[Rfam]
The record is a 77-nucleotide sequence from Atlantibacter hermannii, which matches "ABC transporter regulator" in Rfam.

RNA sequence: UUUACCCAUCGUGAUGUGGUUAUUACAAUCGUAGUGCAUUGAUUGAAAGGGCGAUAUUUUAUCGCCCUUAAUUUUAU
Numbered sequence: 001u002u003u004a005c006c007c008a009u010c011g012u013g014a015u016g017u018g019g020u021u022a023u024u025a026c027a028a029u030c031g032u033a034g035u036g037c038a039u040u041g042a043u044u045g046a047a048a049g050g051g052c053g054a055u056a057u058u059u060u061a062u063c064g065c066c067c068u069u070a071a072u073u074u075u076a077u
Stems, first nucleotide, its partner, number of pairs: 026045006047069010